[Rfam]
RNA sequence: UGGUAGAUGCACCCUGAUUGACACCUCCCGGCUCCACCCAGCCGGGAGUUUUUUUA
Numbered sequence: 001u002g003g004u005a006g007a008u009g010c011a012c013c014c015u016g017a018u019u020g021a022c023a024c025c026u027c028c029c030g031g032c033u034c035c036a037c038c039c040a041g042c043c044g045g046g047a048g049u050u051u052u053u054u055u056a
Stems, first nucleotide, its partner, number of pairs: 002013003025048009

The record is a 56-nucleotide RNA sequence from Oscillatoriaceae cyanobacterium M33_DOE_052, which matches "Nitrogen stress-induced RNA 1" in Rfam. On this family, see Ionescu et al., J Mol Biol 2010: "Heterocyst-specific transcription of NsiR1, a non-coding RNA encoded in a tandem array of direct repeats in cyanobacteria". The family's RNA type in Rfam is small RNA. NCBI's taxonomy places the organism under Bacteria, Bacillati, Cyanobacteriota, Cyanophyceae, Oscillatoriaceae.